[Rfam]
RNA sequence: AAUACUACACUAACAGGAGCACUGACUUGAAUUCUAAAUACUGUAAGUGCUUGCUGUUGGUGCAGUGUUG
Numbered sequence: 001a002a003u004a005c006u007a008c009a010c011u012a013a014c015a016g017g018a019g020c021a022c023u024g025a026c027u028u029g030a031a032u033u034c035u036a037a038a039u040a041c042u043g044u045a046a047g048u049g050c051u052u053g054c055u056g057u058u059g060g061u062g063c064a065g066u067g068u069u070g
Base pairs, nucleotide, nucleotide: 004066005065006064008062009061010060011059013057014056015055016054018051019050020049021048022047023046025044026043
RNA: miR-430 microRNA precursor family